[Rfam]
RNA sequence: AAAAAUCUUACUAUUAUAUUUGUAUUAAAAUUUGUAUAAGUAUAAAAGCACUUAUACAGCCAUUCUGCUCGAAAUGGUACAGCGGUUUUUUAACUGGUGUUAUGAAUUGUAGCAACGCGAGAGUCGGCGUAUAACAGGCUUGGCGGUACUCUGUGCGGGUAUUCUAACAACGAUAUAAUUUAGAAAGUAAGCUAAAUCGGGACUUCUGGGGCGGAGUACAGAAGAAUAGACGAGCUAGUCUAUGUUAGAAUAAGU
Numbered sequence: 001a002a003a004a005a006u007c008u009u010a011c012u013a014u015u016a017u018a019u020u021u022g023u024a025u026u027a028a029a030a031u032u033u034g035u036a037u038a039a040g041u042a043u044a045a046a047a048g049c050a051c052u053u054a055u056a057c058a059g060c061c062a063u064u065c066u067g068c069u070c071g072a073a074a075u076g077g078u079a080c081a082g083c084g085g086u087u088u089u090u091u092a093a094c095u096g097g098u099g100u101u102a103u104g105a106a107u108u109g110u111a112g113c114a115a116c117g118c119g120a121g122a123g124u125c126g127g128c129g130u131a132u133a134a135c136a137g138g139c140u141u142g143g144c145g146g147u148a149c150u151c152u153g154u155g156c157g158g159g160u161a162u163u164c165u166a167a168c169a170a171c172g173a174u175a176u177a178a179u180u181u182a183g184a185a186a187g188u189a190a191g192c193u194a195a196a197u198c199g200g201g202a203c204u205u206c207u208g209g210g211g212c213g214g215a216g217u218a219c220a221g222a223a224g225a226a227u228a229g230a231c232g233a234g235c236u237a238g239u240c241u242a243u244g245u246u247a248g249a250a251u252a253a254g255u
Base pairs, nucleotide, nucleotide: 007191008190009189010188011187012186033058034057035056036055037054038053039052040051041050060077061076062075063074064073079100080099081098083096084095085094086093087092115130116129117128118127121141122140123139124138125137148217149216150215151214152213153212160252161251162250163249164248165247166246167245168244171199172198173197179196180195181194182193183192203224204223205222206221207220208219226243227242228241229240230239231238
Dot-bracket structure: ......[[[[[[....................(((((((((........))))))))).(((((........))))).(((.(((((....))))).)))..............[[[[..(((((.]]]]......)))))......{{{{{{......(((((((((..(((.....(((((..]]]]]]))))))))...((((((...}}}}}}.)))))).((((((......)))))))))))))))...